[Rfam]
The family of this 120-nucleotide RNA sequence from Rahnella aquatilis is "Fumarate/nitrate reductase regulator sRNA". It scores 107 bits against the family's covariance model. NCBI's taxonomy places the organism under Bacteria, Pseudomonadati, Enterobacterales, Yersiniaceae, Rahnella aquatilis.
RNA sequence: GCAGGUGAAUGCAACGUCAAGCGAUGGGCGUUGUGCUCCAUAUUGUCUUAUUUCCAAAUUUUUAGAAUUAAUGCAUAGCACAAUUUAAUUCGAACGACGCCGGUCUUAUGACCGGCUUUU
Numbered sequence: 001g002c003a004g005g006u007g008a009a010u011g012c013a014a015c016g017u018c019a020a021g022c023g024a025u026g027g028g029c030g031u032u033g034u035g036c037u038c039c040a041u042a043u044u045g046u047c048u049u050a051u052u053u054c055c056a057a058a059u060u061u062u063u064a065g066a067a068u069u070a071a072u073g074c075a076u077a078g079c080a081c082a083a084u085u086u087a088a089u090u091c092g093a094a095c096g097a098c099g100c101c102g103g104u105c106u107u108a109u110g111a112c113c114g115g116c117u118u119u120u
Base pairs, nucleotide, nucleotide: 001046002045003044004043007038008037010035011034012033013032014031015030016029017028018027065091066090067089068088069087070086072080073079074078099116100115101114102113103112104111105110
On this family, see Durand and Storz, Mol Microbiol 2010: "Reprogramming of anaerobic metabolism by the FnrS small RNA".